[Rfam]
RNA sequence: GGGGACCUUCGGGGCCCUUAAUCCAACGGACCGACAGGUCCAAAGCUACGGAAGACAGAGA
Dot-bracket structure: ((((.(((...))))))).........(((((....)))))....................
A member of the RNA family "L2-Alphaproteobacteria ribosomal protein leader" from Albidovulum inexpectatum, 61 nucleotides long. It scores 52 bits against the family's covariance model. By type it is a cis-regulatory leader. Pairs were carried over by alignment from the consensus structure, which is taken from published work. The organism belongs to Albidovulum, within Bacteria.